[Rfam]
RNA sequence: CACACGCGGGCAGCGCGGGCGUGCAUAUAGUGUUGCGCGUUCGCUCCGGUGUCCGGUUUGGCCGGGCCAUGCACCGCGGCGGUUCAACCGGAAAAGAGACAAUCG
Numbered sequence: 001c002a003c004a005c006g007c008g009g010g011c012a013g014c015g016c017g018g019g020c021g022u023g024c025a026u027a028u029a030g031u032g033u034u035g036c037g038c039g040u041u042c043g044c045u046c047c048g049g050u051g052u053c054c055g056g057u058u059u060g061g062c063c064g065g066g067c068c069a070u071g072c073a074c075c076g077c078g079g080c081g082g083u084u085c086a087a088c089c090g091g092a093a094a095a096g097a098g099a100c101a102a103u104c105g
Stems, first nucleotide, its partner, number of pairs: 001081001003079001005078005010072002015044002024035002027033001051067006

Rfam assigns this 105-nucleotide RNA from Defluviicoccus sp. to the family "rpsB sRNA". The organism belongs to Defluviicoccus, within Bacteria. The family's consensus secondary structure is taken from published work. The literature on the family includes a 2009 paper in BMC Genomics by Meyer et al., "Identification of candidate structured RNAs in the marine organism 'Candidatus Pelagibacter ubique'".